RNA: Small nucleolar RNA SNORA58
Organism: Rousettus aegyptiacus
RNA sequence: ACGCAUGCCCGUGGACCUUGCCUGACAGCGUUCGUGGCCAGGCAGGGGGGACAGUGCAUGCAAGAGUGCUCGGAGUCCACGCCAGCGCCAGCGUCCGACUGGGUGGCCGGACAAGUAGCGUUGCUCCCACAGCU
Numbered sequence: 001a002c003g004c005a006u007g008c009c010c011g012u013g014g015a016c017c018u019u020g021c022c023u024g025a026c027a028g029c030g031u032u033c034g035u036g037g038c039c040a041g042g043c044a045g046g047g048g049g050g051a052c053a054g055u056g057c058a059u060g061c062a063a064g065a066g067u068g069c070u071c072g073g074a075g076u077c078c079a080c081g082c083c084a085g086c087g088c089c090a091g092c093g094u095c096c097g098a099c100u101g102g103g104u105g106g107c108c109g110g111a112c113a114a115g116u117a118g119c120g121u122u123g124c125u126c127c128c129a130c131a132g133c134u
Stems, first nucleotide, its partner, number of pairs: 003061006016047009072127004077123001080120003092109002095106001